[Rfam]
RNA sequence: GCUGGUGCUUUAAAUAGAUUACGGGGCGCUUUAUCUCCGGGCGGCGAUGACAGGUUAUGGAUGUCGUUGCCGUUUACAUA
Numbered sequence: 001g002c003u004g005g006u007g008c009u010u011u012a013a014a015u016a017g018a019u020u021a022c023g024g025g026g027c028g029c030u031u032u033a034u035c036u037c038c039g040g041g042c043g044g045c046g047a048u049g050a051c052a053g054g055u056u057a058u059g060g061a062u063g064u065c066g067u068u069g070c071c072g073u074u075u076a077c078a079u080a
Stems, first nucleotide, its partner, number of pairs: 022039005040074013
COG2827 RNA: an 80-nucleotide RNA. The family's consensus secondary structure is taken from published work. The sequence is in the family's curated seed alignment.